Description: Rfam assigns this 122-nucleotide RNA from Pelotomaculum thermopropionicum to the family "Molybdenum/Tungsten riboswitch aptamer (Moco RNA motif)". The organism belongs to Pelotomaculum thermopropionicum, within Bacteria. A reference for the family is Regulski et al. (2008), "in molybdenum cofactor and tungsten cofactor metabolism", Mol Microbiol. The family's consensus secondary structure is taken from published work.
[Rfam]
RNA sequence: AUAAAUCGCAAACUCCGAGCCCGGCUGCCUAAACCGCCGCGGCGGCACGGCAGCAGGCCGACAGGGUGCGGCGGGAAACUGCUGCGCCUCCCGCUAUGGAAAGGAGUGAGUUGAAAGGAGGU
Number, nucleotide and partner (000 for none) at each position: 001a000002u000003a000004a000005a000006u113007c000008g000009c000010a000011a000012a107013c106014u105015c104016c103017g000018a000019g058020c057021c056022c000023g000024g054025c053026u052027g051028c050029c049030u000031a000032a000033a000034c045035c044036g043037c000038c000039g000040c000041g000042g000043c036044g035045g034046c000047a000048c000049g029050g028051c027052a026053g025054c024055a000056g021057g020058c019059c000060g000061a000062c000063a000064g089065g088066g087067u086068g085069c084070g083071g082072c081073g080074g079075g000076a000077a000078a000079c074080u073081g072082c071083u070084g069085c068086g067087c066088c065089u064090c099091c098092c000093g000094c000095u000096a000097u000098g091099g090100a000101a000102a000103g016104g015105a014106g013107u012108g000109a000110g000111u000112u000113g006114a000115a000116a000117g000118g000119a000120g000121g000122u000